[Rfam]
RNA sequence: GGGUUAUUGGAAAGGGGACCGUUGCACUGUAGGAGAAGGAGUAGCAGGUCUCACAGUGAACCGGUCUCUGUUCCAGAACUCUC
Number, nucleotide and partner (000 for none) at each position: 001g000002g000003g000004u000005u000006a000007u076008u075009g074010g073011a000012a000013a000014g000015g068016g067017g066018a065019c064020c063021g062022u000023u000024g000025c058026a057027c056028u055029g054030u053031a000032g000033g052034a051035g050036a000037a000038g000039g000040a000041g000042u000043a000044g000045c000046a000047g000048g000049u000050c035051u034052c033053a030054c029055a028056g027057u026058g025059a000060a000061c000062c021063g020064g019065u018066c017067u016068c015069u000070g000071u000072u000073c010074c009075a008076g007077a000078a000079c000080u000081c000082u000083c000
Overview
The record is an 83-nucleotide sequence from Chiloscyllium punctatum, which matches "mir-128 microRNA precursor family" in Rfam. For this family Rfam cites "Identification of microRNAs from different tissues of chicken embryo and adult chicken" (Xu et al., FEBS Lett, 2006). Lineage of the source: Eukaryota > Chondrichthyes > Selachii > Hemiscylliidae > Chiloscyllium. It scores 77 bits against the family's covariance model.